[Rfam]
RNA sequence: UAAGGCCUAUGAUGGAAUUAUGAUAAUAUGCCUACAUUGUCUGAUCAUUUUAAUAUGAUUGAGCAAAAAUGGACUGAGGCCUUG
Numbered sequence: 001u002a003a004g005g006c007c008u009a010u011g012a013u014g015g016a017a018u019u020a021u022g023a024u025a026a027u028a029u030g031c032c033u034a035c036a037u038u039g040u041c042u043g044a045u046c047a048u049u050u051u052a053a054u055a056u057g058a059u060u061g062a063g064c065a066a067a068a069a070u071g072g073a074c075u076g077a078g079g080c081c082u083u084g
Base pairs, nucleotide, nucleotide: 001084002083004081005080006079007078
The record is an 84-nucleotide sequence from Anisodus acutangulus, which matches "Small nucleolar RNA SNORD34" in Rfam. snoRNA U34 is found in intron 5 of the ribosomal protein L13a gene in humans. Clan: SNORD34 clan. Gene Ontology terms of the family: nucleolus and RNA processing. For this family Rfam cites "Purified box C/D snoRNPs are able to reproduce site-specific 2'-O-methylation of target RNA in vitro" (Galardi et al., Mol Cell Biol, 2002).